[Rfam]
The family of this 85-nucleotide RNA sequence from Melghiribacillus thermohalophilus is "c-di-GMP-I riboswitch aptamer". Clan: c-di-GMP_I riboswitch clan. NCBI's taxonomy places the organism under Bacteria, Bacillati, Caryophanales, Bacillaceae, Melghiribacillus. Rfam's curators write: GEMM was predicted in a large-scale screen for bacterial structured RNA regulatory elements.

RNA sequence: AGGGGGUAAAGGUACAACUGGAGAAAUCCAGUGUCACAAAGCUACAGGGGCUAAGGGCUUUUGCCUAUGCCAGCCAGCUGCCAUU
Dot-bracket structure: ...........((...((((((....))))))...))..((((...(((((....(((....)))...)))..))))))......